This 85-nucleotide sequence from Bordetella avium belongs to the Rfam family "DUF3800-VII RNA".
The sequence is in the family's curated seed alignment.
Rfam classes the family as a small RNA.
NCBI's taxonomy places the organism under Bacteria, Pseudomonadota, Betaproteobacteria, Alcaligenaceae, Bordetella avium.
RNA sequence: UGUAGGCAAGCGCUGGGCUUGUAGAGGUCGUCGAGAGACGGCAGCCCUUAUGGGUGGGACCCUCGAACCAGGGGCCUACAGACUA
Numbered sequence: 001u002g003u004a005g006g007c008a009a010g011c012g013c014u015g016g017g018c019u020u021g022u023a024g025a026g027g028u029c030g031u032c033g034a035g036a037g038a039c040g041g042c043a044g045c046c047c048u049u050a051u052g053g054g055u056g057g058g059a060c061c062c063u064c065g066a067a068c069c070a071g072g073g074g075c076c077u078a079c080a081g082a083c084u085a
Base pairs, nucleotide, nucleotide: 001080002079003078004077005076006075007074011072013071014070015069016068022066024064025063026062027042028041029040030039031038032037045054046053047052